RNA sequence: CGGCGGGUGUGAGUCCCGUCCCGGUAGGUACCGGAGCGCCGGGUAGCAGGCCCCAGUUCGUCGGAGAGAUCUGGCGGGUCGAGCGGGGUGUCGAGAGCCUCUUUGGAGGGAGCAACCGUGCGGGCCGUAGCGUGA
Numbered sequence: 001c002g003g004c005g006g007g008u009g010u011g012a013g014u015c016c017c018g019u020c021c022c023g024g025u026a027g028g029u030a031c032c033g034g035a036g037c038g039c040c041g042g043g044u045a046g047c048a049g050g051c052c053c054c055a056g057u058u059c060g061u062c063g064g065a066g067a068g069a070u071c072u073g074g075c076g077g078g079u080c081g082a083g084c085g086g087g088g089u090g091u092c093g094a095g096a097g098c099c100u101c102u103u104u105g106g107a108g109g110g111a112g113c114a115a116c117c118g119u120g121c122g123g124g125c126c127g128u129a130g131c132g133u134g135a
Stems, first nucleotide, its partner, number of pairs: 020043005050089005056079005064071002098109004112128002

The record is a 135-nucleotide RNA sequence from Nocardioides sp., which matches "Group II catalytic intron D1-D4-4" in Rfam. On this family, see Bonen and Vogel, Trends Genet 2001: "The ins and outs of group II introns". Rfam 15.1 lists 840 matches to the family in 506 species. Group II introns are found in rRNA, tRNA and mRNA of organelles in fungi, plants and protists, and also in mRNA in bacteria. Pairs were carried over by alignment from the consensus structure.